[Rfam]
RNA sequence: GAAGUAAAUAAAGCGCCUGGACUAGUAAUGGACGAAACGAAAACUAGUUGACGAGGAGGAGGUUUAUCGAUUUUUCGGCGGAUGCCUCCCGGUUGUAUUAGCCAAUCGAAAGUUCUUCUUUAAAACAUUAAGGCAACUUAAUGCACAAAGAGAAGGGUAUGCUAAUAA
Numbered sequence: 001g002a003a004g005u006a007a008a009u010a011a012a013g014c015g016c017c018u019g020g021a022c023u024a025g026u027a028a029u030g031g032a033c034g035a036a037a038c039g040a041a042a043a044c045u046a047g048u049u050g051a052c053g054a055g056g057a058g059g060a061g062g063u064u065u066a067u068c069g070a071u072u073u074u075u076c077g078g079c080g081g082a083u084g085c086c087u088c089c090c091g092g093u094u095g096u097a098u099u100a101g102c103c104a105a106u107c108g109a110a111a112g113u114u115c116u117u118c119u120u121u122a123a124a125a126c127a128u129u130a131a132g133g134c135a136a137c138u139u140a141a142u143g144c145a146c147a148a149a150g151a152g153a154a155g156g157g158u159a160u161g162c163u164a165a166u167a168a
Stems, first nucleotide, its partner, number of pairs: 020049007029040001058089005067078004090108006112158007126143007
glmS glucosamine-6-phosphate activated ribozyme aptamer: a 168-nucleotide RNA sequence from Niallia nealsonii. A reference for the family is Winkler et al. (2004), "Control of gene expression by a natural metabolite-responsive ribozyme", Nature. Rfam classes the family as a riboswitch.